[Rfam]
RNA: Small nucleolar RNA SNORA23
Organism: Penaeus vannamei
RNA sequence: AUAUAUGUGUGUGUGUGUGUGUGUGUUGUGUGUGUUGUGUGUGUGUGUCUGUGUGUGUCUGUGUUUACAUAUCUCCAUACAUACAUACAUACACACACACACACACACACAUAUAGAGAUAUACACGUAAGUGUGUGUGUGUGUGUGUCUGUGUGUGUCUGUGUUUACAUAUCUCCAUACAUACAUACAUACACACACACACACACAC
Number, nucleotide and partner (000 for none) at each position: 001a000002u000003a000004u000005a000006u000007g000008u000009g000010u000011g000012u000013g000014u115015g114016u113017g000018u000019g000020u000021g000022u000023g000024u000025g000026u000027u000028g000029u107030g106031u105032g000033u103034g102035u101036u099037g098038u097039g096040u095041g094042u000043g092044u091045g090046u089047g088048u000049c000050u085051g084052u083053g082054u081055g080056u079057g078058u077059c000060u000061g000062u000063g000064u000065u000066u000067a000068c000069a000070u000071a000072u000073c000074u000075c000076c000077a058078u057079a056080c055081a054082u053083a052084c051085a050086u000087a000088c047089a046090u045091a044092c043093a000094c041095a040096c039097a038098c037099a036100c000101a035102c034103a033104c000105a031106c030107a029108c000109a000110c000111a000112u000113a016114u015115a014116g000117a000118g000119a000120u000121a000122u000123a000124c000125a000126c000127g000128u000129a000130a000131g000132u201133g200134u199135g198136u197137g000138u000139g000140u000141g000142u000143g000144u187145g186146u185147g184148u183149c000150u000151g180152u179153g178154u177155g000156u171157g170158u169159c000160u167161g166162u000163g000164u000165u000166u161167a160168c000169a158170u157171a156172u000173c000174u000175c000176c000177a154178u153179a152180c151181a000182u000183a148184c147185a146186u145187a144188c000189a000190u000191a000192c000193a000194c000195a000196c000197a136198c135199a134200c133201a132202c000203a000204c000205a000206c000207a000208c000